This 208-nucleotide RNA sequence from Desulfocicer vacuolatum belongs to the Rfam family "HNH endonuclease-associated RNA and ORF (HEARO) RNA".
RNA sequence: GAUAGUUCCUAAAUCAAUAGUAUUUCAUAGUAUUGACAUGGAACUAACAGGAGGCAUCAUUUAAUGAUGAAGCAGAAGUUAAUCAGGUUAUCUUACCCUGGAAUGUUACUCCAGUUCCAGGCUCUAAGGUUUAUCUUUAAGGGUAGCGGAAACGUGAAUGUGAGAUAAACGUGACAAGCCUUUUUAACAACUCCAAGGAGUACCUUAC
Numbered sequence: 001g002a003u004a005g006u007u008c009c010u011a012a013a014u015c016a017a018u019a020g021u022a023u024u025u026c027a028u029a030g031u032a033u034u035g036a037c038a039u040g041g042a043a044c045u046a047a048c049a050g051g052a053g054g055c056a057u058c059a060u061u062u063a064a065u066g067a068u069g070a071a072g073c074a075g076a077a078g079u080u081a082a083u084c085a086g087g088u089u090a091u092c093u094u095a096c097c098c099u100g101g102a103a104u105g106u107u108a109c110u111c112c113a114g115u116u117c118c119a120g121g122c123u124c125u126a127a128g129g130u131u132u133a134u135c136u137u138u139a140a141g142g143g144u145a146g147c148g149g150a151a152a153c154g155u156g157a158a159u160g161u162g163a164g165a166u167a168a169a170c171g172u173g174a175c176a177a178g179c180c181u182u183u184u185u186a187a188c189a190a191c192u193c194c195a196a197g198g199a200g201u202a203c204c205u206u207a208c
Stems, first nucleotide, its partner, number of pairs: 001048001003046006010022002013018001023038001025036002050194004055069005078188005085181004093127002097121008105204001107202006129170009141161001142159001144157001146155003
Notes:
The match comes from Rfam's covariance-model search (86 bits). NCBI's taxonomy places the organism under Bacteria, Pseudomonadati, Desulfobacterales, Desulfobacteraceae, Desulfocicer vacuolatum. The base pairs follow the family's consensus structure, which is taken from published work.